[Rfam]
RNA sequence: UGACGGCUACCCAAGCAGGGGGUCGAUCAACCACGGGACCGGAGAGCAGGAUCAUAUACCGCCAGGAUUCGGCAACGAACCGGGACGGAAGG
Numbered sequence: 001u002g003a004c005g006g007c008u009a010c011c012c013a014a015g016c017a018g019g020g021g022g023u024c025g026a027u028c029a030a031c032c033a034c035g036g037g038a039c040c041g042g043a044g045a046g047c048a049g050g051a052u053c054a055u056a057u058a059c060c061g062c063c064a065g066g067a068u069u070c071g072g073c074a075a076c077g078a079a080c081c082g083g084g085a086c087g088g089a090a091g092g
Stems, first nucleotide, its partner, number of pairs: 001029003004025005010020002059088003062084002065081002068079003
RNA: pan motif
Organism: Oryzomonas rubra